[Rfam]
RNA sequence: CUUUACCUCCCUCUCACUCGGAUCGUCCGGCACGUUCCUGCCGGUGGAAGGAGCACAGC
Numbered sequence: 001c002u003u004u005a006c007c008u009c010c011c012u013c014u015c016a017c018u019c020g021g022a023u024c025g026u027c028c029g030g031c032a033c034g035u036u037c038c039u040g041c042c043g044g045u046g047g048a049a050g051g052a053g054c055a056c057a058g059c
Stems, first nucleotide, its partner, number of pairs: 010051003014047003027044006
The family of this 59-nucleotide sequence from Pseudonocardia sp. CNS-004 is "msiK RNA". By type it is a cis-regulatory element. The match comes from Rfam's covariance-model search (53 bits). The source organism's lineage runs through Bacteria, Actinomycetota, Actinomycetes, Pseudonocardiales and Pseudonocardia.